[Rfam]
RNA sequence: GAGUGUCAGAGCUCGGGGGUCUCUGCGUCCCUACGGUGUGCCGUUCCCCCUGUUCAGCAGGGCGAGGACGCAACACAGAUAUGCAGAGGGGAGGGUCUGAGAUGCCGUUUUUUGACCGAGAGGUCACACGCCACGAGGUGUGGGUCGCCAACCAGAAAAUUGCAGGCGGUGUGAGUGCACCCCGUAGCCCGUCUGCGGCUGAGUGCCUCGCACGGUACGCUUGUAUGAAAGAGGCUGACUGGCACGGGCGGCAGGGCUGUCUGGAUUCCAGAGCUCCAGGGUUCUGUCGUUGGAAGCUUGAGUUCAAUCUUCGAGGCGUCUACUCUUUCGUAGACGAACUUGAUUCAGACUACUCCUGGCACUC
Numbered sequence: 001g002a003g004u005g006u007c008a009g010a011g012c013u014c015g016g017g018g019g020u021c022u023c024u025g026c027g028u029c030c031c032u033a034c035g036g037u038g039u040g041c042c043g044u045u046c047c048c049c050c051u052g053u054u055c056a057g058c059a060g061g062g063c064g065a066g067g068a069c070g071c072a073a074c075a076c077a078g079a080u081a082u083g084c085a086g087a088g089g090g091g092a093g094g095g096u097c098u099g100a101g102a103u104g105c106c107g108u109u110u111u112u113u114g115a116c117c118g119a120g121a122g123g124u125c126a127c128a129c130g131c132c133a134c135g136a137g138g139u140g141u142g143g144g145u146c147g148c149c150a151a152c153c154a155g156a157a158a159a160u161u162g163c164a165g166g167c168g169g170u171g172u173g174a175g176u177g178c179a180c181c182c183c184g185u186a187g188c189c190c191g192u193c194u195g196c197g198g199c200u201g202a203g204u205g206c207c208u209c210g211c212a213c214g215g216u217a218c219g220c221u222u223g224u225a226u227g228a229a230a231g232a233g234g235c236u237g238a239c240u241g242g243c244a245c246g247g248g249c250g251g252c253a254g255g256g257c258u259g260u261c262u263g264g265a266u267u268c269c270a271g272a273g274c275u276c277c278a279g280g281g282u283u284c285u286g287u288c289g290u291u292g293g294a295a296g297c298u299u300g301a302g303u304u305c306a307a308u309c310u311u312c313g314a315g316g317c318g319u320c321u322a323c324u325c326u327u328u329c330g331u332a333g334a335c336g337a338a339c340u341u342g343a344u345u346c347a348g349a350c351u352a353c354u355c356c357u358g359g360c361a362c363u364c
Stems, first nucleotide, its partner, number of pairs: 001364004007358003012315007021088005036076003039072003097348005103244004113126005127142006143240004147235003162224007317336006
A member of the RNA family "Nuclear RNase P" from Besnoitia besnoiti, 364 nucleotides long. Lineage of the source: Eukaryota > Conoidasida > Coccidia > Sarcocystidae > Besnoitia. Its family is annotated with ribonuclease P complex, ribonuclease P activity and tRNA processing in the Gene Ontology. For this family Rfam cites "Ribonuclease P: unity and diversity in a tRNA processing ribozyme" (Frank and Pace, Annu Rev Biochem, 1998). Rfam classes the family as a ribozyme.